[Rfam]
RNA sequence: ACUGCUUUUCUUUGAUGUCCCCAUUUUGAGGAGCCCAAGCGUCCCGCCUAUUAGGUUCAAGACGCUUGGUUUUUUUAUU
Numbered sequence: 001a002c003u004g005c006u007u008u009u010c011u012u013u014g015a016u017g018u019c020c021c022c023a024u025u026u027u028g029a030g031g032a033g034c035c036c037a038a039g040c041g042u043c044c045c046g047c048c049u050a051u052u053a054g055g056u057u058c059a060a061g062a063c064g065c066u067u068g069g070u071u072u073u074u075u076u077a078u079u
Base pairs, nucleotide, nucleotide: 032072033071035069036068037067038066039065040064041063042062043061
RNA: RybB RNA
Organism: Sodalis glossinidius